Notes
The family of this 62-nucleotide RNA from Microcebus murinus is "U7 small nuclear RNA". Lineage of the source: Eukaryota > Opisthokonta > Eumetazoa > Dipnotetrapodomorpha > Microcebus. A search with the family's covariance model found it, with a score of 57 bits.

[Rfam]
RNA sequence: CAGUGUUACAGCUCUUUUAGAAUCUGUCUAGGAGGUUUUCCAGUCCUAACCAGAAGACCCUC
Numbered sequence: 001c002a003g004u005g006u007u008a009c010a011g012c013u014c015u016u017u018u019a020g021a022a023u024c025u026g027u028c029u030a031g032g033a034g035g036u037u038u039u040c041c042a043g044u045c046c047u048a049a050c051c052a053g054a055a056g057a058c059c060c061u062c
Base pairs, nucleotide, nucleotide: 034059035058036057037056038055039054040053043050044049